[Rfam]
RNA sequence: GAUCCUCGAACGCUUAAUUCUUUUUUAAAGAAGCGGGGGAACCAAUUCCCGGGGUGAAUCCUUUUCAGGUGGACGGCCGGAGGGCCCGUUCAUGAGAGAGGGUAGGGUUAUCCUUUCAACCCGAACCCGUCAGCUAACUUCGUCAGCGUGGAAGGGAGGUUGU
Numbered sequence: 001g002a003u004c005c006u007c008g009a010a011c012g013c014u015u016a017a018u019u020c021u022u023u024u025u026u027a028a029a030g031a032a033g034c035g036g037g038g039g040a041a042c043c044a045a046u047u048c049c050c051g052g053g054g055u056g057a058a059u060c061c062u063u064u065u066c067a068g069g070u071g072g073a074c075g076g077c078c079g080g081a082g083g084g085c086c087c088g089u090u091c092a093u094g095a096g097a098g099a100g101g102g103u104a105g106g107g108u109u110a111u112c113c114u115u116u117c118a119a120c121c122c123g124a125a126c127c128c129g130u131c132a133g134c135u136a137a138c139u140u141c142g143u144c145a146g147c148g149u150g151g152a153a154g155g156g157a158g159g160u161u162g163u
Stems, first nucleotide, its partner, number of pairs: 011148004018032006033143006043051001052128003060102007105122004